[Rfam]
The family of this 86-nucleotide sequence from Niallia circulans is "c-di-GMP-I riboswitch aptamer".
Lineage of the source: Bacteria > Bacilli > Caryophanales > Bacillaceae > Niallia.
The match comes from Rfam's covariance-model search (77 bits).
RNA sequence: AAAUGUAAAAGGCAAACCAAUACGAAAGUUUGGGACGCAAAGUCACGGAUCUAAUGUCUUAAAACAAUGAUGGCCGGACUGCCAAA
Numbered sequence: 001a002a003a004u005g006u007a008a009a010a011g012g013c014a015a016a017c018c019a020a021u022a023c024g025a026a027a028g029u030u031u032g033g034g035a036c037g038c039a040a041a042g043u044c045a046c047g048g049a050u051c052u053a054a055u056g057u058c059u060u061a062a063a064a065c066a067a068u069g070a071u072g073g074c075c076g077g078a079c080u081g082c083c084a085a086a
Stems, first nucleotide, its partner, number of pairs: 012038002017033004022029002041080004046076003049071003056065002